[Rfam]
RNA: tRNA
RNA sequence: GCGGAUGUGGUGGAAUCGGCAGACACGCUAUCUUGAGGGGGUAGUGAGCAACGCUCAUAUGGGUUCAAGUCCCAUCAUCCGCA
Dot-bracket structure: (((((((..(((...........))).(((((.......)))))..............(((((.......)))))))))))).